Nucleotides: 163
Stems, first nucleotide, its partner, number of pairs: 005074002007071006019060005027053001083158003087155001090143001092142004106130002109127001146153002
Number, partner (000 for none) and nucleotide at each position: 001000a002000g003000u004000c005074g006073c007071u008070c009069a010068u011067u012066c013000a014000u015000c016000u017000c018000g019060a020059u021058a022057u023056g024000a025000c026000a027053g028000c029000g030000u031000c032000c033000u034000g035000a036000a037000g038000g039000a040000a041000g042000u043000u044000u045000a046000a047000u048000a049000u050000a051000c052000a053027c054000c055000c056023u057022a058021u059020a060019u061000c062000a063000u064000c065000c066012g067011a068010a069009u070008g071007a072000u073006g074005c075000c076000a077000a078000u079000a080000u081000a082000u083158g084157c085156u086000g087155u088000a089000c090143c091000g092142g093141u094140c095139c096000a097000a098000c099000g100000u101000a102000a103000c104000c105000g106130u107129u108000a109127a110000u111000c112000g113000c114000u115000g116000c117000u118000u119000c120000g121000g122000c123000g124000g125000u126000g127109u128000a129107a130106a131000a132000a133000a134000u135000c136000a137000c138000a139095g140094g141093a142092c143090g144000a145000c146153a147152c148000u149000u150000g151000a152147g153146u154000a155087a156085g157084g158083c159000a160000c161000c162000u163000u